[Rfam]
RNA sequence: UGUGUGUUGGAGGAUGAAAAUAAGGAGUGAUCCAUCGGCUGAGUGUCUUGUCAUCAUGCUGAAACUCACUUUGCUGACAGCACACA
Numbered sequence: 001u002g003u004g005u006g007u008u009g010g011a012g013g014a015u016g017a018a019a020a021u022a023a024g025g026a027g028u029g030a031u032c033c034a035u036c037g038g039c040u041g042a043g044u045g046u047c048u049u050g051u052c053a054u055c056a057u058g059c060u061g062a063a064a065c066u067c068a069c070u071u072u073g074c075u076g077a078c079a080g081c082a083c084a085c086a
Stems, first nucleotide, its partner, number of pairs: 002085007009075002012033004017028001035062005043054003
RNA: Small nucleolar RNA SNORD71
Organism: Fukomys damarensis